Notes
Shown here is a 105-nucleotide sequence, a member of the family "Parabacteroides-1 RNA". Pairs were carried over by alignment from the consensus structure, which is taken from published work. The family's RNA type in Rfam is small RNA.
RNA sequence: AAAGAGAACAUUGAGAGAUAACAGAAUUAGGCUGACCCUUCUCAAGAUGAUUCUUACGAGAAUUCACAGAAGAGUUACAAGGGCAGAAUGUAACUUGAUCUCUUU
Numbered sequence: 001a002a003a004g005a006g007a008a009c010a011u012u013g014a015g016a017g018a019u020a021a022c023a024g025a026a027u028u029a030g031g032c033u034g035a036c037c038c039u040u041c042u043c044a045a046g047a048u049g050a051u052u053c054u055u056a057c058g059a060g061a062a063u064u065c066a067c068a069g070a071a072g073a074g075u076u077a078c079a080a081g082g083g084c085a086g087a088a089u090g091u092a093a094c095u096u097g098a099u100c101u102c103u104u105u
Base pairs, nucleotide, nucleotide: 002104003103004102005101006100007099009097010096011045012044013043014042015041017040018039022034023033024032049064050063051062052061053060054059073095074094075093076092077091078090079089